[Rfam]
RNA sequence: CGCAUUAAGGUGGGUGGGAUAAUAUAACGAUGUUCUCCAUGGUGUUAUAGUAUUCCACCCACCCUGAUGUC
Numbered sequence: 001c002g003c004a005u006u007a008a009g010g011u012g013g014g015u016g017g018g019a020u021a022a023u024a025u026a027a028c029g030a031u032g033u034u035c036u037c038c039a040u041g042g043u044g045u046u047a048u049a050g051u052a053u054u055c056c057a058c059c060c061a062c063c064c065u066g067a068u069g070u071c
Base pairs, nucleotide, nucleotide: 003069004068005067006066007065009063010062011061012060013059014058015057016056017055019053020052021051023049024048025047026046027045028044029043031041032040033039
Shown here is a 71-nucleotide sequence from Coregonus sp. 'balchen', a member of the family "mir-2985 microRNA precursor family". On this family, see Stefl et al., Cell 2010: "The solution structure of the ADAR2 dsRBM-RNA complex reveals a sequence-specific readout of the minor groove". Rfam 15.1 lists 2,000 matches to the family in 637 species. NCBI's taxonomy places the organism under Eukaryota, Craniata, Teleostomi, Salmonidae, Coregonus. RNAs can be post-transcriptional modified, in micro RNAs (miRNA) editing of pre-mRNA is a common process. It scores 77 bits against the family's covariance model.